[Rfam]
RNA: Ascomycota telomerase RNA, nucleotides 1120 to 1517
RNA sequence: AAUCAUACAGAAGGAGCUCUCUCGUCAGUGUCUGUGGGUUUUCAGACUGCGUUCUGCUAUGGCAACCUUUUGGUGGAGUCGUAUUUACGAAGGUAUUGGAUCAUUUAUGGAAUCGUCAGCUCACGAAACAGUCUUCACUUUUGCGAUGGCCGUUGUUGCAGGAGGAUACUUGCGGUUGGUGUUGGAAGCAUCACCGGGACCCAUCUCGAGUUGGAGUCAAAGUUUCGUACUUGUCUGGUGUUGUGAAAGAUCCUUCUGUCAAGUUGAAUUUCACGACUCUGGCCGCACUGUUGAGGCUGGGUUGCAUUGUUGGAUCUAGGACAGGCCUUGGUGGGUAGGGUAGUCCUGGCUGUUCUCUCGCCUGAAAAUGGUAUGGAGGACAGCCCCCCGCGGUGAGG
Numbered sequence: 001a002a003u004c005a006u007a008c009a010g011a012a013g014g015a016g017c018u019c020u021c022u023c024g025u026c027a028g029u030g031u032c033u034g035u036g037g038g039u040u041u042u043c044a045g046a047c048u049g050c051g052u053u054c055u056g057c058u059a060u061g062g063c064a065a066c067c068u069u070u071u072g073g074u075g076g077a078g079u080c081g082u083a084u085u086u087a088c089g090a091a092g093g094u095a096u097u098g099g100a101u102c103a104u105u106u107a108u109g110g111a112a113u114c115g116u117c118a119g120c121u122c123a124c125g126a127a128a129c130a131g132u133c134u135u136c137a138c139u140u141u142u143g144c145g146a147u148g149g150c151c152g153u154u155g156u157u158g159c160a161g162g163a164g165g166a167u168a169c170u171u172g173c174g175g176u177u178g179g180u181g182u183u184g185g186a187a188g189c190a191u192c193a194c195c196g197g198g199a200c201c202c203a204u205c206u207c208g209a210g211u212u213g214g215a216g217u218c219a220a221a222g223u224u225u226c227g228u229a230c231u232u233g234u235c236u237g238g239u240g241u242u243g244u245g246a247a248a249g250a251u252c253c254u255u256c257u258g259u260c261a262a263g264u265u266g267a268a269u270u271u272c273a274c275g276a277c278u279c280u281g282g283c284c285g286c287a288c289u290g291u292u293g294a295g296g297c298u299g300g301g302u303u304g305c306a307u308u309g310u311u312g313g314a315u316c317u318a319g320g321a322c323a324g325g326c327c328u329u330g331g332u333g334g335g336u337a338g339g340g341u342a343g344u345c346c347u348g349g350c351u352g353u354u355c356u357c358u359c360g361c362c363u364g365a366a367a368a369u370g371g372u373a374u375g376g377a378g379g380a381c382a383g384c385c386c387c388c389c390g391c392g393g394u395g396a397g398g
Stems, first nucleotide, its partner, number of pairs: 198218003201214003220232004